This 79-nucleotide sequence from Cairina moschata belongs to the Rfam family "Small nucleolar RNA SNORD121A". The family's RNA type in Rfam is C/D-box small nucleolar RNA. The family has 26 seed sequences and 881 matches in Rfam 15.1. The literature on the family includes a 2006 paper in Nucleic Acids Res by Yang et al., "snoSeeker: an advanced computational package for screening of guide and orphan snoRNA genes in the human genome". The base pairs follow the family's consensus structure, which was predicted with WAR.
RNA sequence: GUCCAAAAUACAAUGAUGUCUUUUCCAAGCACACAUCUGAUUGUUCUGUGUGGAAAAUGACUGCUGAGUGAUUUUGGAU
Number, nucleotide and partner (000 for none) at each position: 001g079002u078003c077004c076005a075006a074007a000008a072009u071010a069011c068012a000013a000014u000015g000016a000017u000018g000019u000020c000021u000022u000023u000024u000025c000026c000027a000028a000029g000030c000031a000032c000033a000034c000035a000036u000037c000038u000039g000040a000041u000042u000043g000044u000045u000046c000047u000048g000049u000050g000051u000052g000053g000054a000055a000056a000057a000058u000059g000060a000061c000062u000063g000064c000065u000066g000067a000068g011069u010070g000071a009072u008073u000074u006075u005076g004077g003078a002079u001